Eukaryotic large subunit ribosomal RNA: a 443-nucleotide part of an RNA from Nephila pilipes.
It scores 2844 bits against the family's covariance model.
The base pairs follow the family's consensus structure, which is taken from published work.

RNA sequence: AUGGUUUUUGCGAUAGCAAUCGAGCUCAGUACGAGAGGAACCGCAGGUUCGGAAAUUUGGUAUGUGCGCCUGGCCGGAAGGCCAACGGUGCUAGGCUACCGUCCGCGGGUUAACGGCUGAACGCCUCUAAGCCGGAAGCCCGCCUAACCGGUGGCAGAGAUAGCGUGUGCCGCCUGCCGUCGCUUGGCUGAGUUAGGCUCUAUCUCCUCAUCUGGAGAGAUUAGCCGAAGAAGCCUUUUCGGUAAUCUGAGCAGUUUCUGGGGUCGACCCGACUGUGUCUCCCCUGUGCUCUUUGACCUGAGCCUCCUGAGUUCGAAGGAGGUGUGAUGCGGUGGUGCCGAAUCGUCCGUAGACGACUCACCUACUGGUCGGGGUGUCGUAAGUGCGAGAGCAGCCACCUUACUGCGAUCCACUGAAACUCGUCCCUCGAUCGGCCGGUUCGU
Numbered sequence: 001a002u003g004g005u006u007u008u009u010g011c012g013a014u015a016g017c018a019a020u021c022g023a024g025c026u027c028a029g030u031a032c033g034a035g036a037g038g039a040a041c042c043g044c045a046g047g048u049u050c051g052g053a054a055a056u057u058u059g060g061u062a063u064g065u066g067c068g069c070c071u072g073g074c075c076g077g078a079a080g081g082c083c084a085a086c087g088g089u090g091c092u093a094g095g096c097u098a099c100c101g102u103c104c105g106c107g108g109g110u111u112a113a114c115g116g117c118u119g120a121a122c123g124c125c126u127c128u129a130a131g132c133c134g135g136a137a138g139c140c141c142g143c144c145u146a147a148c149c150g151g152u153g154g155c156a157g158a159g160a161u162a163g164c165g166u167g168u169g170c171c172g173c174c175u176g177c178c179g180u181c182g183c184u185u186g187g188c189u190g191a192g193u194u195a196g197g198c199u200c201u202a203u204c205u206c207c208u209c210a211u212c213u214g215g216a217g218a219g220a221u222u223a224g225c226c227g228a229a230g231a232a233g234c235c236u237u238u239u240c241g242g243u244a245a246u247c248u249g250a251g252c253a254g255u256u257u258c259u260g261g262g263g264u265c266g267a268c269c270c271g272a273c274u275g276u277g278u279c280u281c282c283c284c285u286g287u288g289c290u291c292u293u294u295g296a297c298c299u300g301a302g303c304c305u306c307c308u309g310a311g312u313u314c315g316a317a318g319g320a321g322g323u324g325u326g327a328u329g330c331g332g333u334g335g336u337g338c339c340g341a342a343u344c345g346u347c348c349g350u351a352g353a354c355g356a357c358u359c360a361c362c363u364a365c366u367g368g369u370c371g372g373g374g375u376g377u378c379g380u381a382a383g384u385g386c387g388a389g390a391g392c393a394g395c396c397a398c399c400u401u402a403c404u405g406c407g408a409u410c411c412a413c414u415g416a417a418a419c420u421c422g423u424c425c426c427u428c429g430a431u432c433g434g435c436c437g438g439u440u441c442g443u
Stems, first nucleotide, its partner, number of pairs: 004161008014146003019049001021047001024044002050105004058098003066091004071084005107141003114134005169336006340441005345361002349357001366433006372426003376419002383413003388409001391406004